[Rfam]
RNA: MIR2907 microRNA precursor family
Organism: Oryza meridionalis
RNA sequence: UGGCACUCCUACCUCCGCCCACUCGACCGCUACGCGGCAGCCGAGCGAGGGCCUCGGGGCGGCGC
Numbered sequence: 001u002g003g004c005a006c007u008c009c010u011a012c013c014u015c016c017g018c019c020c021a022c023u024c025g026a027c028c029g030c031u032a033c034g035c036g037g038c039a040g041c042c043g044a045g046c047g048a049g050g051g052c053c054u055c056g057g058g059g060c061g062g063c064g065c
Stems, first nucleotide, its partner, number of pairs: 003063002007059004017052004022045004027040001030037002